[Rfam]
RNA sequence: AUUAUAUUUUAGCAAAACUGGUGAAAAUCAGUGACGCAAAGCUAUGGGUCUACCGAUAUUAUUAUCUAUGACUGCCAGGCUGCACUC
Numbered sequence: 001a002u003u004a005u006a007u008u009u010u011a012g013c014a015a016a017a018c019u020g021g022u023g024a025a026a027a028u029c030a031g032u033g034a035c036g037c038a039a040a041g042c043u044a045u046g047g048g049u050c051u052a053c054c055g056a057u058a059u060u061a062u063u064a065u066c067u068a069u070g071a072c073u074g075c076c077a078g079g080c081u082g083c084a085c086u087c
Stems, first nucleotide, its partner, number of pairs: 012037002017032006040081004045077003048072003055066004
Dot-bracket structure: ...........((...((((((....))))))...))..((((.((((((....((((....))))...)))..)))))))......

Background: Shown here is an 87-nucleotide RNA from Pectinatus brassicae, a member of the family "c-di-GMP-I riboswitch aptamer". The family's consensus secondary structure is taken from published work. From the family's description: GEMM was predicted in a large-scale screen for bacterial structured RNA regulatory elements. Rfam links the family to the GO term cyclic-di-GMP binding. The source organism's lineage runs through Bacteria, Bacillota, Negativicutes, Selenomonadaceae and Pectinatus. The match comes from Rfam's covariance-model search (70 bits).